[Rfam]
RNA sequence: AAAAUAAAUUUAAAAAAAGUUCGUAUAAUCCUUAAAAUACGGUUAAGGAGUUUCUACCAAGAACCAAUAAUUCUUGAUUACGAAGGAUACGUUUAAAAUA
Numbered sequence: 001a002a003a004a005u006a007a008a009u010u011u012a013a014a015a016a017a018a019g020u021u022c023g024u025a026u027a028a029u030c031c032u033u034a035a036a037a038u039a040c041g042g043u044u045a046a047g048g049a050g051u052u053u054c055u056a057c058c059a060a061g062a063a064c065c066a067a068u069a070a071u072u073c074u075u076g077a078u079u080a081c082g083a084a085g086g087a088u089a090c091g092u093u094u095a096a097a098a099u100a
Stems, first nucleotide, its partner, number of pairs: 020084006029049007058076006
A member of the RNA family "Purine riboswitch aptamer" from Clostridium baratii, 100 nucleotides long.